[Rfam]
RNA sequence: GAUCAGCUUAAAUUUAUCUGCCAGAGCAUAGAGAAAACUAUGCGUCGGAACUUCUGGCAGAUACCACUUGCAAAGGUGAUUUCCCUUUC
Numbered sequence: 001g002a003u004c005a006g007c008u009u010a011a012a013u014u015u016a017u018c019u020g021c022c023a024g025a026g027c028a029u030a031g032a033g034a035a036a037a038c039u040a041u042g043c044g045u046c047g048g049a050a051c052u053u054c055u056g057g058c059a060g061a062u063a064c065c066a067c068u069u070g071c072a073a074a075g076g077u078g079a080u081u082u083c084c085c086u087u088u089c
Base pairs, nucleotide, nucleotide: 019059020058021057022056023055024054025053026043027042028041029040030039031038
RNA: HTH-XRE RNA
Organism: Anaerosacchariphilus hominis